[Rfam]
RNA sequence: GGCAUUCUUUGCCAUGGCGGAGCUCGACCGCCCGUUGAAGUGAUGAUCGCGUUCAUCGACGAACACCGCGCCGUUCGUGGAGGCGAGCCGAUCUGCAGGCUGUUGCCGAUCGCCA
Numbered sequence: 001g002g003c004a005u006u007c008u009u010u011g012c013c014a015u016g017g018c019g020g021a022g023c024u025c026g027a028c029c030g031c032c033c034g035u036u037g038a039a040g041u042g043a044u045g046a047u048c049g050c051g052u053u054c055a056u057c058g059a060c061g062a063a064c065a066c067c068g069c070g071c072c073g074u075u076c077g078u079g080g081a082g083g084c085g086a087g088c089c090g091a092u093c094u095g096c097a098g099g100c101u102g103u104u105g106c107c108g109a110u111c112g113c114c115a
Stems, first nucleotide, its partner, number of pairs: 016032005078115003089112002092109002095106004
This 115-nucleotide RNA from Sandarakinorhabdus cyanobacteriorum belongs to the Rfam family "ALIL pseudoknot". Pairs were carried over by alignment from the consensus structure, which is taken from published work. By type it is a cis-regulatory element. The family has 26 seed sequences and 2,146 matches in Rfam 15.1. Gene Ontology term of the family: positive regulation of translational frameshifting.